[Rfam]
RNA sequence: CGCGGUCUUCGGUAGUGGCUGCCGGGUCUGAUACCCGACAGCUUCGAUCGAUGGCCGUG
Numbered sequence: 001c002g003c004g005g006u007c008u009u010c011g012g013u014a015g016u017g018g019c020u021g022c023c024g025g026g027u028c029u030g031a032u033a034c035c036c037g038a039c040a041g042c043u044u045c046g047a048u049c050g051a052u053g054g055c056c057g058u059g
Base pairs, nucleotide, nucleotide: 001059002058003057004056005055006054007053009051010050011049012048013047017043018042019041020040021039023037024036025035026034027033
Dot-bracket structure: (((((((.(((((...(((((.(((((.....))))).)))))...))))).)))))))